RNA sequence: UCAAAUCCGUUGGGGUGCCCCGCUCGGGGCUGAGAGGCGACAGCCAACCCAUCGAACCUGAUCCGGACAAUACCGGCGUAGGGAACGGAACUUGAUCUGCC
Numbered sequence: 001u002c003a004a005a006u007c008c009g010u011u012g013g014g015g016u017g018c019c020c021c022g023c024u025c026g027g028g029g030c031u032g033a034g035a036g037g038c039g040a041c042a043g044c045c046a047a048c049c050c051a052u053c054g055a056a057c058c059u060g061a062u063c064c065g066g067a068c069a070a071u072a073c074c075g076g077c078g079u080a081g082g083g084a085a086c087g088g089a090a091c092u093u094g095a096u097c098u099g100c101c
Base pairs, nucleotide, nucleotide: 006089007088008087009086010085011051012050013049014048017030018029019028020027021026037044038043057082058081059080060079063076064075065074066073

The family of this 101-nucleotide sequence from Roseivivax sediminis is "TPP riboswitch aptamer (THI element)". The source organism's lineage runs through Bacteria, Pseudomonadati, Pseudomonadota, Alphaproteobacteria and Roseivivax.